[Rfam]
RNA sequence: AGCUUUGCGCAGUGGCAGUACCAUAGUCAAUGAGGUUUAUCCGAGACGUGGUUAUUGCUAGUUGAAAACUAUACCCAAUACCCCGCGCGGUCGCCCUGAAAUACGGGCGGUUAGCGCAAUUUCUGCAGGCUCCUCACGGAG
Numbered sequence: 001a002g003c004u005u006u007g008c009g010c011a012g013u014g015g016c017a018g019u020a021c022c023a024u025a026g027u028c029a030a031u032g033a034g035g036u037u038u039a040u041c042c043g044a045g046a047c048g049u050g051g052u053u054a055u056u057g058c059u060a061g062u063u064g065a066a067a068a069c070u071a072u073a074c075c076c077a078a079u080a081c082c083c084c085g086c087g088c089g090g091u092c093g094c095c096c097u098g099a100a101a102u103a104c105g106g107g108c109g110g111u112u113a114g115c116g117c118a119a120u121u122u123c124u125g126c127a128g129g130c131u132c133c134u135c136a137c138g139g140a141g
Stems, first nucleotide, its partner, number of pairs: 020052005026047003034042002085117003089112008130141004